A member of the RNA family "Small nucleolar RNA SNORA24" from Ornithorhynchus anatinus, 130 nucleotides long.
Pairs were carried over by alignment from the consensus structure, which was predicted with RNAfold.
Its family is annotated with RNA processing and nucleolus in the Gene Ontology.
Rfam classes the family as an H/ACA-box small nucleolar RNA.
Rfam 15.1 lists 852 matches to the family in 501 species.
ACA24 is a member of the H/ACA class of snoRNA that guide the sites of modification of uridines to pseudouridines.
RNA sequence: CUCCAUGACACCUUGGGACCUGCCUCUUGUGGCAGCCUCCCUUCCUAGGCAUGGAAGAGCAUCUGCUUGUUGAUGGCAAAGCUGCCACCAUUUCAUUGGUAGCAGAUUCUGACUUGUGCAAGCGACAAGG
Numbered sequence: 001c002u003c004c005a006u007g008a009c010a011c012c013u014u015g016g017g018a019c020c021u022g023c024c025u026c027u028u029g030u031g032g033c034a035g036c037c038u039c040c041c042u043u044c045c046u047a048g049g050c051a052u053g054g055a056a057g058a059g060c061a062u063c064u065g066c067u068u069g070u071u072g073a074u075g076g077c078a079a080a081g082c083u084g085c086c087a088c089c090a091u092u093u094c095a096u097u098g099g100u101a102g103c104a105g106a107u108u109c110u111g112a113c114u115u116g117u118g119c120a121a122g123c124g125a126c127a128a129g130g
Stems, first nucleotide, its partner, number of pairs: 002055006015041004020035005068127004074120002076117004082105003087100004